[Rfam]
RNA sequence: GAUUAUUAAGGUCGGAAAGGCUCCCGACACUCUCUGUAAAGAGAACCUGAGAUGCAGGAUACGCCGCCCUGCUAAUAGUC
Numbered sequence: 001g002a003u004u005a006u007u008a009a010g011g012u013c014g015g016a017a018a019g020g021c022u023c024c025c026g027a028c029a030c031u032c033u034c035u036g037u038a039a040a041g042a043g044a045a046c047c048u049g050a051g052a053u054g055c056a057g058g059a060u061a062c063g064c065c066g067c068c069c070u071g072c073u074a075a076u077a078g079u080c
Base pairs, nucleotide, nucleotide: 001080002079003078004077005076006075007074008073011028012027013026014025015024019065020064021063030049031044032043033042034041054072055071056070057069058068
Dot-bracket structure: ((((((((..(((((...[[[..))))).(((((......))))....)....(((((....]]]..)))))))))))))